This 82-nucleotide RNA from Rhodoplanes sp. belongs to the Rfam family "Bradyrhizobiaceae sRNA BjrC68".
A search with the family's covariance model found it, with a score of 47 bits.
NCBI's taxonomy places the organism under Bacteria, Pseudomonadati, Pseudomonadota, Nitrobacteraceae, Rhodoplanes.
The base pairs follow the family's consensus structure.
[Rfam]
RNA sequence: ACAGGACUCGGAGGGGGCGGAGACCCGGCACCGCCCCUUUCGAUCGGAGGCCCCGACCUUGUGUCGGGGCCUCUUUUUUUGU
Numbered sequence: 001a002c003a004g005g006a007c008u009c010g011g012a013g014g015g016g017g018c019g020g021a022g023a024c025c026c027g028g029c030a031c032c033g034c035c036c037c038u039u040u041c042g043a044u045c046g047g048a049g050g051c052c053c054c055g056a057c058c059u060u061g062u063g064u065c066g067g068g069g070c071c072u073c074u075u076u077u078u079u080u081g082u
Base pairs, nucleotide, nucleotide: 009042010041011040012039013038014037015036016035017034047073048072049071050070051069052068053067054066056064057063